Shown here is a 127-nucleotide RNA sequence from Microcebus murinus, a member of the family "Small Cajal body specific RNA 15". Rfam classes the family as a small Cajal body RNA. The organism belongs to Microcebus, within Eukaryota.

RNA sequence: CUGGAGACUAAGAAAAUCGAGUCAUUGAAAUCAAGCUGACACUGCUGUUAGCCUUCUUCAUGAAAAGGUAGAUAGAACAGGUCUUGUUUGCAAAAUAAAUCUAAGACCUCGUUAUCUACCAGUAGCA
Dot-bracket structure: ..((((.((((.....(.(.(((.(((....)))...))).).)...)))).))))..........((((((((....((((((((...............))))))))...)))))))).......